[Rfam]
A member of the RNA family "Small nucleolar RNA SNORD113/SNORD114 family", 75 nucleotides long.
Its family is annotated with RNA processing and nucleolus in the Gene Ontology.
It is annotated as a C/D-box small nucleolar RNA.
The literature on the family includes a 2002 paper in Hum Mol Genet by Cavaille et al., "Identification of tandemly-repeated C/D snoRNA genes at the imprinted human 14q32 domain reminiscent of those at the Prader-Willi/Angelman syndrome region".
Rfam's curators put it in the seed alignment.
Its Rfam clan is "SNORD74 clan".
Rfam's curators write: The imprinted human domain at 14q32 contains two clusters of tandemly repeated small nucleolar RNAs named 14q(I) and 14q(II) snoRNAs. These two clusters are named SNORD113 and SNORD114 respectively in the HGNC approved gene symbol nomenclature. The snoRNAs found in both clusters are clearly related and are represented here by a single family. These snoRNAs are intron encoded and are processed from the tissue-specific non-coding human MEG8 RNA, which lies downstream of the imprinted genes DLK1 and GTL2. snoRNAs 14q(I) and 14q(II) differ from previously identified C/D box snoRNAs in their expression profiles and lack of complementarity to rRNA and snRNA. Homologues of these snoRNAs are found in the imprinted non-coding mouse transcript Rian, and in the rat non-coding Bsr (brain-specific repetitive) RNA.
RNA sequence: AGGACCUAUGAUGAGAUCUGGUGGCAUCUGACUGUAUCUCGAUGACAGCCAUGAGAACAGAUGUCUGAGGUCAGG
Number, nucleotide and partner (000 for none) at each position: 001a000002g000003g072004a071005c070006c069007u000008a000009u000010g000011a000012u000013g000014a000015g000016a000017u000018c000019u000020g000021g000022u000023g000024g000025c000026a000027u000028c000029u000030g000031a000032c000033u000034g000035u000036a000037u000038c000039u000040c000041g000042a000043u000044g000045a000046c000047a000048g000049c000050c000051a000052u000053g000054a000055g000056a000057a000058c000059a000060g000061a000062u000063g000064u000065c000066u000067g000068a000069g006070g005071u004072c003073a000074g000075g000